A member of the RNA family "Small nucleolar RNA SNORA24" from Nannospalax galili, 131 nucleotides long. Rfam 15.1 lists 852 matches to the family in 501 species. From the family's description: ACA24 is a member of the H/ACA class of snoRNA that guide the sites of modification of uridines to pseudouridines. By type it is an H/ACA-box small nucleolar RNA. Rfam links the family to the GO terms nucleolus and RNA processing.
RNA sequence: CUCCAUAUAUCUUUGGAACCUGCCAGGUGUGGCAGUCUCCCUUCCUACCUAUGGAAGGGUAUGUUCUUGUUUAUUGGCAAAGCUGUCACCAUUUAAGUGGCAUUGAAUUCUGAAUGACACAAUUAACAUUC
Numbered sequence: 001c002u003c004c005a006u007a008u009a010u011c012u013u014u015g016g017a018a019c020c021u022g023c024c025a026g027g028u029g030u031g032g033c034a035g036u037c038u039c040c041c042u043u044c045c046u047a048c049c050u051a052u053g054g055a056a057g058g059g060u061a062u063g064u065u066c067u068u069g070u071u072u073a074u075u076g077g078c079a080a081a082g083c084u085g086u087c088a089c090c091a092u093u094u095a096a097g098u099g100g101c102a103u104u105g106a107a108u109u110c111u112g113a114a115u116g117a118c119a120c121a122a123u124u125a126a127c128a129u130u131c
Base pairs, nucleotide, nucleotide: 002055003054004053005052006051007050015041016040018038020035021034022033023032024031068128069127070126071125074122075121076120077118080115084105085104089100090099091098